[Rfam]
This 84-nucleotide RNA sequence from Cotesia congregata belongs to the Rfam family "mir-6012 microRNA precursor family". Its family is annotated with miRNA-mediated post-transcriptional gene silencing and RISC complex in the Gene Ontology. It scores 80 bits against the family's covariance model.
RNA sequence: UGCAGGGUUAGCAGACUGAUUUUGUCGAACGGGAUGUAGAGCUAAAAGUCAUUUCGGCGAUGAGAUCAGCCUGUCGAACCCGGC
Numbered sequence: 001u002g003c004a005g006g007g008u009u010a011g012c013a014g015a016c017u018g019a020u021u022u023u024g025u026c027g028a029a030c031g032g033g034a035u036g037u038a039g040a041g042c043u044a045a046a047a048g049u050c051a052u053u054u055c056g057g058c059g060a061u062g063a064g065a066u067c068a069g070c071c072u073g074u075c076g077a078a079c080c081c082g083g084c
Base pairs, nucleotide, nucleotide: 002084003083005081006080007079008078011074012073013072014071016069017068018067019066020065021064022063023062024061025060026059033055034054036052037051